RNA sequence: AGCUCCUAAUUGGAAUUUAUAAAAAGCUGAUACAUAAUCAAAUUAGACGAUGUAUCAUAUGUGAACUAUAUUAAUGCGAUUGAGUAAUUAGUAUGUCUUAGUGCAAACUUUGAUUGAAAGUUAUUCUUAUUCGUAUGAUAUAAAGUAAUGUAUGGGUGAAGUCUUAAAAGAUUUAAUCGGUGUACAUAAUUUAAACGGAUAUCAACUCCAGAAGUUGAUAGUUUCGUUCAUUUUUCACUUUGAAAAAAUUAGAGUGUUCAAAGCCGAGCUAAAAUUGCUCGAAUGUUAUAUCAUUGUAUGAAAUAACAUGAUCUCGUUUAGACUUUUUUGUCUUCUUUUAUUGAUCUAAAAUGAGAUAAUGAUUAAAAGGAACAGCCGGUGGCAUUGGUAUUACGGCGCUAGAGGUGAAAUUCUUAGACCGUCGUAAGACUACCUACUGCGAAAGCAUUUGCCAAGAAUGUUUUCAUUAAUCAAGAACGAAAGUUAGAGGAUCGAAGGCGAUCAGAUACCGCCCUAGUUCUAACCAUAAACUAU
Numbered sequence: 001a002g003c004u005c006c007u008a009a010u011u012g013g014a015a016u017u018u019a020u021a022a023a024a025a026g027c028u029g030a031u032a033c034a035u036a037a038u039c040a041a042a043u044u045a046g047a048c049g050a051u052g053u054a055u056c057a058u059a060u061g062u063g064a065a066c067u068a069u070a071u072u073a074a075u076g077c078g079a080u081u082g083a084g085u086a087a088u089u090a091g092u093a094u095g096u097c098u099u100a101g102u103g104c105a106a107a108c109u110u111u112g113a114u115u116g117a118a119a120g121u122u123a124u125u126c127u128u129a130u131u132c133g134u135a136u137g138a139u140a141u142a143a144a145g146u147a148a149u150g151u152a153u154g155g156g157u158g159a160a161g162u163c164u165u166a167a168a169a170g171a172u173u174u175a176a177u178c179g180g181u182g183u184a185c186a187u188a189a190u191u192u193a194a195a196c197g198g199a200u201a202u203c204a205a206c207u208c209c210a211g212a213a214g215u216u217g218a219u220a221g222u223u224u225c226g227u228u229c230a231u232u233u234u235u236c237a238c239u240u241u242g243a244a245a246a247a248a249u250u251a252g253a254g255u256g257u258u259c260a261a262a263g264c265c266g267a268g269c270u271a272a273a274a275u276u277g278c279u280c281g282a283a284u285g286u287u288a289u290a291u292c293a294u295u296g297u298a299u300g301a302a303a304u305a306a307c308a309u310g311a312u313c314u315c316g317u318u319u320a321g322a323c324u325u326u327u328u329u330g331u332c333u334u335c336u337u338u339u340a341u342u343g344a345u346c347u348a349a350a351a352u353g354a355g356a357u358a359a360u361g362a363u364u365a366a367a368a369g370g371a372a373c374a375g376c377c378g379g380u381g382g383c384a385u386u387g388g389u390a391u392u393a394c395g396g397c398g399c400u401a402g403a404g405g406u407g408a409a410a411u412u413c414u415u416a417g418a419c420c421g422u423c424g425u426a427a428g429a430c431u432a433c434c435u436a437c438u439g440c441g442a443a444a445g446c447a448u449u450u451g452c453c454a455a456g457a458a459u460g461u462u463u464u465c466a467u468u469a470a471u472c473a474a475g476a477a478c479g480a481a482a483g484u485u486a487g488a489g490g491a492u493c494g495a496a497g498g499c500g501a502u503c504a505g506a507u508a509c510c511g512c513c514c515u516a517g518u519u520c521u522a523a524c525c526a527u528a529a530a531c532u533a534u
Stems, first nucleotide, its partner, number of pairs: 002478001004476002009471003369465004373460002377456001380454005387431002391427008402413003439446002483524006493517001497513004
Dot-bracket structure: .(.((...(((.....................................................................................................................................................................................................................................................................................................................................................................((((((..(..(((((..((..((((((((...(((......)))......))))))))..)).......((....))...))))).)..)).))))...)))...)).)....((((((....(...((((.........))))...).))))))..........